This 87-nucleotide RNA sequence from Neptunicoccus cionae belongs to the Rfam family "Glycine riboswitch aptamer". It scores 54 bits against the family's covariance model.
RNA sequence: CAGAUCGAGUCGGGAGAAGCCAGCCCAGCUGGUGCCGAAGGAGCAACCGCCCCGGAAACUCUCAGGCAAAAGGACCGCCGAUCUUAC
Numbered sequence: 001c002a003g004a005u006c007g008a009g010u011c012g013g014g015a016g017a018a019g020c021c022a023g024c025c026c027a028g029c030u031g032g033u034g035c036c037g038a039a040g041g042a043g044c045a046a047c048c049g050c051c052c053c054g055g056a057a058a059c060u061c062u063c064a065g066g067c068a069a070a071a072g073g074a075c076c077g078c079c080g081a082u083c084u085u086a087c
Stems, first nucleotide, its partner, number of pairs: 009079001011077003020032004034067003037063002041061003047055002